[Rfam]
RNA sequence: CCAUACCGGUCGGGGAAUUAGCGGUGCCCUGUACCUGCAAUCCGCUACAGCAGGGAUGGUUUCCGAUUAUGAGGGGUGGAUUUGUGUGGUCUGCACCGCAUAAUCUCCGCGAUGACGGGUGGGUCCCGCGCAAUCGGUAGCUGUGAACCAUGUCAGGUGAGGAAUCAAGCAGCAUUAAGCAGUGCCACCGGUGUGCCGCGGGGUUGCCUGCUCCGAGCGGAGACUGCGGAAAGCGCAUGGAAGUUCAUUUCGAGUUUUCGGUGUAUGG
Numbered sequence: 001c002c003a004u005a006c007c008g009g010u011c012g013g014g015g016a017a018u019u020a021g022c023g024g025u026g027c028c029c030u031g032u033a034c035c036u037g038c039a040a041u042c043c044g045c046u047a048c049a050g051c052a053g054g055g056a057u058g059g060u061u062u063c064c065g066a067u068u069a070u071g072a073g074g075g076g077u078g079g080a081u082u083u084g085u086g087u088g089g090u091c092u093g094c095a096c097c098g099c100a101u102a103a104u105c106u107c108c109g110c111g112a113u114g115a116c117g118g119g120u121g122g123g124u125c126c127c128g129c130g131c132a133a134u135c136g137g138u139a140g141c142u143g144u145g146a147a148c149c150a151u152g153u154c155a156g157g158u159g160a161g162g163a164a165u166c167a168a169g170c171a172g173c174a175u176u177a178a179g180c181a182g183u184g185c186c187a188c189c190g191g192u193g194u195g196c197c198g199c200g201g202g203g204u205u206g207c208c209u210g211c212u213c214c215g216a217g218c219g220g221a222g223a224c225u226g227c228g229g230a231a232a233g234c235g236c237a238u239g240g241a242a243g244u245u246c247a248u249u250u251c252g253a254g255u256u257u258u259c260g261g262u263g264u265a266u267g268g
Base pairs, nucleotide, nucleotide: 001268002267003266004265005264006263009057010056011055012030013029014028015027017025018024019023034054035053036052037051038050063261064260065259066258069255073251074250075249076248077247079245080244081243082242083241085239086238087237088236092235093234096229097228098227099226100225104223105222108219109218110217117213118212119211120210121209122208123207124206125202126201127200128199129198130197131193132192134191135190136189137188138187140183141182142181143180144179150175151174152173153172158167159166160165
RNA: Bacterial large signal recognition particle RNA
Organism: Candidatus Apopatosoma intestinale